[Rfam]
RNA sequence: AGCGCCGAGAGGCAGCCUAUAGGAGUGCGCUCCUGGGAAAUUCCCUGGGUCCCGGGCAGAAAGUGCCGCCUCCUUUGGGGUAUGGGGGGCUAGCGGUGUGAUUCGCGGCCCUCCUUUGGCCACUCUGCCAGGAAUGGCUGCGGAGCUUUGCUCAAACUCGACGGGGUAACUCCUCGGCGCU
Numbered sequence: 001a002g003c004g005c006c007g008a009g010a011g012g013c014a015g016c017c018u019a020u021a022g023g024a025g026u027g028c029g030c031u032c033c034u035g036g037g038a039a040a041u042u043c044c045c046u047g048g049g050u051c052c053c054g055g056g057c058a059g060a061a062a063g064u065g066c067c068g069c070c071u072c073c074u075u076u077g078g079g080g081u082a083u084g085g086g087g088g089g090c091u092a093g094c095g096g097u098g099u100g101a102u103u104c105g106c107g108g109c110c111c112u113c114c115u116u117u118g119g120c121c122a123c124u125c126u127g128c129c130a131g132g133a134a135u136g137g138c139u140g141c142g143g144a145g146c147u148u149u150g151c152u153c154a155a156a157c158u159c160g161a162c163g164g165g166g167u168a169a170c171u172c173c174u175c176g177g178c179g180c181u
Stems, first nucleotide, its partner, number of pairs: 001181007012141006021034005043166005055067004068081003072078002084114008093106004143153004
Dot-bracket structure: (((((((....((((((...(((((....)))))........[[[[[.......((((.....))))(((.((...)))))..((((((((.((((......)))))))))))).....................)))))).((((...))))........]]]]]........)))))))
The record is a 181-nucleotide sequence from Giardia muris, which matches "Giardia RNase MRP" in Rfam. A reference for the family is Chen et al. (2011), "Characterization of RNase MRP RNA and novel snoRNAs from Giardia intestinalis and Trichomonas vaginalis", BMC Genomics,. It scores 115 bits against the family's covariance model. Pairs were carried over by alignment from the consensus structure, which is taken from published work. It is annotated as a ribozyme.